[Rfam]
RNA sequence: GCAAGUGCCUCCUGAAACAUCGGGCAUAAUGAGGGAAACUUCAUUAAUGAAUGUGGUCAAAUUCAAGGAAGCCUAAAGUUGUUAACGAGUUUGUUGACGACCAAGGUAAUCUUGAGCCAAGCUUUAUAGUUCCUGGUAAAGAAGGUGCAGAGACUGGUUGCAGAUAUAAAAGCAGGGAAGAGCAAUUUUAGGUCUAGUUACUAGAACUGUCUGCAACAUAACGGCCACCACCUAAAGGUAUUUUGCCCAAGGUGAAGGGAUAGUCCAGAGAGUAGGGAAACCUACAC
Numbered sequence: 001g002c003a004a005g006u007g008c009c010u011c012c013u014g015a016a017a018c019a020u021c022g023g024g025c026a027u028a029a030u031g032a033g034g035g036a037a038a039c040u041u042c043a044u045u046a047a048u049g050a051a052u053g054u055g056g057u058c059a060a061a062u063u064c065a066a067g068g069a070a071g072c073c074u075a076a077a078g079u080u081g082u083u084a085a086c087g088a089g090u091u092u093g094u095u096g097a098c099g100a101c102c103a104a105g106g107u108a109a110u111c112u113u114g115a116g117c118c119a120a121g122c123u124u125u126a127u128a129g130u131u132c133c134u135g136g137u138a139a140a141g142a143a144g145g146u147g148c149a150g151a152g153a154c155u156g157g158u159u160g161c162a163g164a165u166a167u168a169a170a171a172g173c174a175g176g177g178a179a180g181a182g183c184a185a186u187u188u189u190a191g192g193u194c195u196a197g198u199u200a201c202u203a204g205a206a207c208u209g210u211c212u213g214c215a216a217c218a219u220a221a222c223g224g225c226c227a228c229c230a231c232c233u234a235a236a237g238g239u240a241u242u243u244u245g246c247c248c249a250a251g252g253u254g255a256a257g258g259g260a261u262a263g264u265c266c267a268g269a270g271a272g273u274a275g276g277g278a279a280a281c282c283u284a285c286a287c
Base pairs, nucleotide, nucleotide: 005027006026007025008024009023010022013019031042032041033040053228054227055226056225058223063115064114065113066112067111068110072106073105074104116146117145123139124138128134129133150266152265153264154263155262156261231252232251233250237246272285273284274283275282276281
RNA: Group I catalytic intron
Organism: Pleurocapsa sp. CCALA 161